[Rfam]
RNA sequence: UGUUGAGAACCAUUUGAAUCACUACAAUACUUGAUUCAAAAGGUUCUCAUAA
Numbered sequence: 001u002g003u004u005g006a007g008a009a010c011c012a013u014u015u016g017a018a019u020c021a022c023u024a025c026a027a028u029a030c031u032u033g034a035u036u037c038a039a040a041a042g043g044u045u046c047u048c049a050u051a052a
Stems, first nucleotide, its partner, number of pairs: 004049008013040009